[Rfam]
RNA sequence: CCCGGGGCGGUGCCCCGGGCUGGGAUAAGACGCCCCUUCAGGGCU
Numbered sequence: 001c002c003c004g005g006g007g008c009g010g011u012g013c014c015c016c017g018g019g020c021u022g023g024g025a026u027a028a029g030a031c032g033c034c035c036c037u038u039c040a041g042g043g044c045u
Stems, first nucleotide, its partner, number of pairs: 001019008032044004
RNA: Acido-Lenti-1 RNA
Organism: Oceaniferula marina